[Rfam]
RNA sequence: UGCCAUGUUGCACUAUCAGUAACUUAACAUCAAAGUAGUAAAUAAAAGAACCUGCCUCACCAGCAGGUUUUUUU
Numbered sequence: 001u002g003c004c005a006u007g008u009u010g011c012a013c014u015a016u017c018a019g020u021a022a023c024u025u026a027a028c029a030u031c032a033a034a035g036u037a038g039u040a041a042a043u044a045a046a047a048g049a050a051c052c053u054g055c056c057u058c059a060c061c062a063g064c065a066g067g068u069u070u071u072u073u074u
Stems, first nucleotide, its partner, number of pairs: 007023005044074012